[Rfam]
RNA sequence: UGUGCACAUGCGUGAUGAUACAUGAUGUUGGUAGGGACAUCUGAAAAUAUUUGAUGAGAACCAACAUCUCUGACAUGCUUA
Numbered sequence: 001u002g003u004g005c006a007c008a009u010g011c012g013u014g015a016u017g018a019u020a021c022a023u024g025a026u027g028u029u030g031g032u033a034g035g036g037a038c039a040u041c042u043g044a045a046a047a048u049a050u051u052u053g054a055u056g057a058g059a060a061c062c063a064a065c066a067u068c069u070c071u072g073a074c075a076u077g078c079u080u081a
Stems, first nucleotide, its partner, number of pairs: 001081002004078002

This 81-nucleotide RNA from Onychostoma macrolepis belongs to the Rfam family "Small nucleolar RNA SNORD74". Pairs were carried over by alignment from the consensus structure, which was predicted with PFOLD. Taxonomically the source falls in Onychostoma (Eukaryota, Gnathostomata, Actinopterygii, Neopterygii). The match comes from Rfam's covariance-model search (55 bits). It is annotated as a C/D-box small nucleolar RNA.